[Rfam]
Nucleotides: 068
Stems, first nucleotide, its partner, number of pairs: 010025004016059006041049002
Number, partner (000 for none) and nucleotide at each position: 001000a002000a003000g004000a005000a006000a007000g008000a009000c010025g011024g012023c013022g014000a015000u016059g017058g018057a019056g020055u021054u022013c023012g024011c025010c026000g027000g028000g029000c030000a031000u032000a033000u034000g035000c036000c037000g038000a039000a040000c041049g042048c043000u044000u045000c046000g047000c048042g049041c050000u051000g052000a053000u054021g055020a056019c057018u058017c059016c060000u061000g062000u063000c064000c065000c066000u067000u068000a
A member of the RNA family "Fluoride riboswitch aptamer (crcB RNA motif)" from Dialister sp. CAG:357, 68 nucleotides long. Its family is annotated with response to fluoride and positive regulation of gene expression in the Gene Ontology. The match comes from Rfam's covariance-model search (39 bits). The source organism's lineage runs through Bacteria, Bacillati, Negativicutes, Veillonellales and Dialister.